[Rfam]
A member of the RNA family "MIR530 microRNA precursor family" from Salix viminalis, 135 nucleotides long. The match comes from Rfam's covariance-model search (94 bits). On this family, see Lu et al., Plant J 2008: "Stress-responsive microRNAs in Populus".
RNA sequence: CCCACCAUGUCGCCUUCUUCUGCAUUUGCACCUGCACCUUACUUGUUCCCUUCUCUUGUUUUCCGAAACCAGAAGCUCGAUGCAUUGGAACAAGCUUGAGGUGCAGGUGCAGGUGCAGGUGAAUGCCAUGCUGGU
Numbered sequence: 001c002c003c004a005c006c007a008u009g010u011c012g013c014c015u016u017c018u019u020c021u022g023c024a025u026u027u028g029c030a031c032c033u034g035c036a037c038c039u040u041a042c043u044u045g046u047u048c049c050c051u052u053c054u055c056u057u058g059u060u061u062u063c064c065g066a067a068a069c070c071a072g073a074a075g076c077u078c079g080a081u082g083c084a085u086u087g088g089a090a091c092a093a094g095c096u097u098g099a100g101g102u103g104c105a106g107g108u109g110c111a112g113g114u115g116c117a118g119g120u121g122a123a124u125g126c127c128a129u130g131c132u133g134g135u
Stems, first nucleotide, its partner, number of pairs: 002134003006130004012126002015123003019119023